[Rfam]
RNA sequence: CUGCGGCGCCUUUCGGGGCGCCGCAGUACAACCAGGACCGACGCUCACAAAGCCGAAGUCCUUAUUUGAAAUGAUAUAGAUGACCAGCAGGGGCAACCGGGCUGGUGCCCGGACUAUCUGCGGGAUCCUGAGUGGCUUUCAUCCUGGUCGCCGUACCCGGAGUUGAGGCUGCGAUGCCGAUUCCACGCCGGUGGUGUCCCCUUACCGAGGGUGACCA
Number, nucleotide and partner (000 for none) at each position: 001c026002u025003g024004c023005g022006g021007c020008g019009c018010c017011u016012u000013u000014c000015g000016g011017g010018g009019c008020g007021c006022c005023g004024c003025a002026g001027u000028a000029c000030a000031a000032c000033c000034a000035g061036g060037a059038c058039c000040g000041a000042c000043g053044c052045u051046c000047a000048c000049a000050a000051a045052g044053c043054c000055g000056a000057a000058g038059u037060c036061c035062u000063u000064a000065u000066u000067u000068g000069a000070a000071a000072u000073g000074a000075u000076a000077u000078a000079g000080a000081u000082g000083a000084c000085c000086a000087g000088c000089a202090g201091g200092g199093g198094c196095a195096a000097c112098c111099g110100g109101g108102c000103u000104g000105g000106u000107g000108c101109c100110c099111g098112g097113a000114c194115u193116a192117u191118c190119u000120g188121c187122g186123g000124g183125a182126u180127c179128c176129u000130g000131a000132g172133u171134g170135g169136c000137u168138u167139u000140c000141a000142u161143c160144c159145u000146g158147g157148u000149c000150g000151c000152c000153g000154u000155a000156c000157c147158c146159g144160g143161a142162g000163u000164u000165g000166a000167g138168g137169c135170u134171g133172c132173g000174a000175u000176g128177c000178c000179g127180a126181u000182u125183c124184c000185a000186c122187g121188c120189c000190g118191g117192u116193g115194g114195u095196g094197u000198c093199c092200c091201c090202u089203u000204a000205c000206c000207g000208a000209g000210g000211g000212u000213g000214a000215c000216c000217a000